This 61-nucleotide sequence from Sodalis-like endosymbiont of Proechinophthirus fluctus belongs to the Rfam family "Pseudomonas sRNA P26". Taxonomically the source falls in Sodalis (Bacteria, Pseudomonadati, Pseudomonadota, Bruguierivoracaceae). Rfam's curators write: This small RNA (sRNA) was computationally identified in the genome of the opportunistic pathogen Pseudomonas aeruginosa and its expression verified by northern blot analysis. P26 is conserved across many Gammaproteobacteria species and appears to be consistently located between the DNA directed RNA polymerase (beta subunit) and 50S ribosomal protein L7/L12 genes.
[Rfam]
Nucleotides: 061
Stems, first nucleotide, its partner, number of pairs: 014032005035060010
Number, partner (000 for none) and nucleotide at each position: 001000a002000c003000c004000u005000u006000c007000c008000a009000g010000a011000u012000u013000a014032c015031a016030g017029c018028c019000u020000g021000g022000a023000u024000c025000u026000u027000a028018g029017g030016c031015u032014g033000a034000u035060a036059g037058c038057u039056g040055g041054u042053g043052g044051c045000u046000u047000u048000u049000g050000g051044g052043u053042c054041a055040c056039c057038a058037g059036c060035u061000u